Shown here is a 244-nucleotide RNA, a member of the family "Group II catalytic intron D1-D4-6".
About the family: Group II introns are found in rRNA, tRNA and mRNA of organelles in fungi, plants and protists, and also in mRNA in bacteria.
The family has 174 seed sequences and 1,617 matches in Rfam 15.1.

[Rfam]
RNA sequence: AAAGUUUCAUACAGUGAAGGAGUAGCGAUCCACACUGGCUCCGAGUCAUGUGCCUUGGUUCGCAAGAGCGAGGGUGAAGCGUUGACAGGGGUACGUGCAGGCGAGGUAUUGAGCCGCGAAAAUGAACCACCAUCGCGCAAGCGGUGGCCACUUCUGGGUGCCGACGCUUUUGAACGGAGCGAAAGGCAAAACUGGAGGCGUCGCAAUGGCGAGACGCUCUCGGACCCGGCGCGGUCUACGACCC
Numbered sequence: 001a002a003a004g005u006u007u008c009a010u011a012c013a014g015u016g017a018a019g020g021a022g023u024a025g026c027g028a029u030c031c032a033c034a035c036u037g038g039c040u041c042c043g044a045g046u047c048a049u050g051u052g053c054c055u056u057g058g059u060u061c062g063c064a065a066g067a068g069c070g071a072g073g074g075u076g077a078a079g080c081g082u083u084g085a086c087a088g089g090g091g092u093a094c095g096u097g098c099a100g101g102c103g104a105g106g107u108a109u110u111g112a113g114c115c116g117c118g119a120a121a122a123u124g125a126a127c128c129a130c131c132a133u134c135g136c137g138c139a140a141g142c143g144g145u146g147g148c149c150a151c152u153u154c155u156g157g158g159u160g161c162c163g164a165c166g167c168u169u170u171u172g173a174a175c176g177g178a179g180c181g182a183a184a185g186g187c188a189a190a191a192c193u194g195g196a197g198g199c200g201u202c203g204c205a206a207u208g209g210c211g212a213g214a215c216g217c218u219c220u221c222g223g224a225c226c227c228g229g230c231g232c233g234g235u236c237u238a239c240g241a242c243c244c
Stems, first nucleotide, its partner, number of pairs: 012037005019031003023212001025210002039091004045086004049081002051076006058069004110238001111236001113235006154229006160187003165181006192223004197218006